The family of this 134-nucleotide RNA from Mola mola is "U11 spliceosomal RNA". It is annotated as a spliceosomal small nuclear RNA. The literature on the family includes a 1988 paper in Proc Natl Acad Sci U S A by Montzka and Steitz, "Additional low-abundance human small nuclear ribonucleoproteins: U11, U12, etc". The family is grouped with related families in Rfam's "U1 clan". The base pairs follow the family's consensus structure, which is taken from published work. It scores 110 bits against the family's covariance model.
RNA sequence: AAAAAGGGCUUCUGCUGUGCUUUGCACAGGAGGGAUGGUAAUGACUGUUCCUCCUGCGGAAUCGCCAUCAAGAGAUUUCGGAAGCAAAAUUUUUAGAUCCGGGGCUGCUGGUGAUCUACUGUCCUGGCGCCCCA
Dot-bracket structure: .......((((((((.(....).)))((((((((((((......))))))))))))(((((((..........))))))))))))................((((.(((((.(((.....))))))))))))..